[Rfam]
A member of the RNA family "c-di-AMP riboswitch aptamer (ydaO/yuaA leader)" from Paenibacillus sp. OAS669, 138 nucleotides long. This family represents a conserved RNA structure found upstream of the ydaO and yuaA genes in Bacillus subtilis and related genes in other bacteria. Lineage of the source: Bacteria > Bacilli > Caryophanales > Paenibacillaceae > Paenibacillus.
RNA sequence: UAUAAGAAUACGCUUAAUUUCCGGUUUAUUCAUCGGAAAGCGGGGGAACCACUUUUUGGGGCGAAUCAUGAUUUGCAUGUAGGGAACCAUCUUUCCCGAGCCCGGCAGCUAACCUCGUCAGCAGUGGAUGGGUCAAAU
Numbered sequence: 001u002a003u004a005a006g007a008a009u010a011c012g013c014u015u016a017a018u019u020u021c022c023g024g025u026u027u028a029u030u031c032a033u034c035g036g037a038a039a040g041c042g043g044g045g046g047a048a049c050c051a052c053u054u055u056u057u058g059g060g061g062c063g064a065a066u067c068a069u070g071a072u073u074u075g076c077a078u079g080u081a082g083g084g085a086a087c088c089a090u091c092u093u094u095c096c097c098g099a100g101c102c103c104g105g106c107a108g109c110u111a112a113c114c115u116c117g118u119c120a121g122c123a124g125u126g127g128a129u130g131g132g133u134c135a136a137a138u
Stems, first nucleotide, its partner, number of pairs: 012122003018039008040118006050058002059103003067079004082097004